Lysine riboswitch aptamer: a 164-nucleotide RNA from Clostridium thermobutyricum. Pairs were carried over by alignment from the consensus structure, which is taken from published work. Gene Ontology term of the family: lysine biosynthetic process. It scores 98 bits against the family's covariance model.
RNA sequence: AUACAGGGUAGAGGCGCCAGUGUAAAGAGUAUUUAUUAGGAGCUGCAAGCUAUGAUUAAUAAAGAAAGGUGCAAUGGCCGAAGUUAGCUGACCGCAAGAAGGCUUUCUGGGUAUAUGUAUAAUAUGCAUAUAACUGUCACAUAACGUGGAGUGCUACAACUGAG
Numbered sequence: 001a002u003a004c005a006g007g008g009u010a011g012a013g014g015c016g017c018c019a020g021u022g023u024a025a026a027g028a029g030u031a032u033u034u035a036u037u038a039g040g041a042g043c044u045g046c047a048a049g050c051u052a053u054g055a056u057u058a059a060u061a062a063a064g065a066a067a068g069g070u071g072c073a074a075u076g077g078c079c080g081a082a083g084u085u086a087g088c089u090g091a092c093c094g095c096a097a098g099a100a101g102g103c104u105u106u107c108u109g110g111g112u113a114u115a116u117g118u119a120u121a122a123u124a125u126g127c128a129u130a131u132a133a134c135u136g137u138c139a140c141a142u143a144a145c146g147u148g149g150a151g152u153g154c155u156a157c158a159a160c161u162g163a164g
Base pairs, nucleotide, nucleotide: 008157009156010155011154016078017077018076019075021073022072023071024070032063033062034061035060036059037058038057039056082108083107086104087103088102089101092098109135110134112132113131114130115129116128117127118126119125137149138148139147140146